Fluoride riboswitch aptamer (crcB RNA motif): a 72-nucleotide sequence from Enterococcus columbae. The base pairs follow the family's consensus structure, which is taken from published work. The source organism's lineage runs through Bacteria, Bacillati, Bacilli, Enterococcaceae and Enterococcus columbae. A search with the family's covariance model found it, with a score of 48 bits.

[Rfam]
RNA sequence: AUACGAACAGGGAAUGAAGUUCUCCCUUGGGUAACCAAAACCGCGUAAAACGCUGAUGACUUCUAUGGCUUU
Numbered sequence: 001a002u003a004c005g006a007a008c009a010g011g012g013a014a015u016g017a018a019g020u021u022c023u024c025c026c027u028u029g030g031g032u033a034a035c036c037a038a039a040a041c042c043g044c045g046u047a048a049a050a051c052g053c054u055g056a057u058g059a060c061u062u063c064u065a066u067g068g069c070u071u072u
Base pairs, nucleotide, nucleotide: 010026011025012024013023016063017062018061019060020059021058043053044052045051
Dot-bracket structure: .........[[[[..((((((.]]]]................(((.....)))....)))))).........